[Rfam]
RNA sequence: GCGAACCACCCUCAACUCGGAUCGUCCGGCACGUUCCUGCCGGUGAAGGGAUCGAACG
Numbered sequence: 001g002c003g004a005a006c007c008a009c010c011c012u013c014a015a016c017u018c019g020g021a022u023c024g025u026c027c028g029g030c031a032c033g034u035u036c037c038u039g040c041c042g043g044u045g046a047a048g049g050g051a052u053c054g055a056a057c058g
Stems, first nucleotide, its partner, number of pairs: 009050004015044001026043006
Description:
The family of this 58-nucleotide sequence from Rhodococcus maanshanensis is "msiK RNA". By type it is a cis-regulatory element. The organism belongs to Rhodococcus, within Bacteria.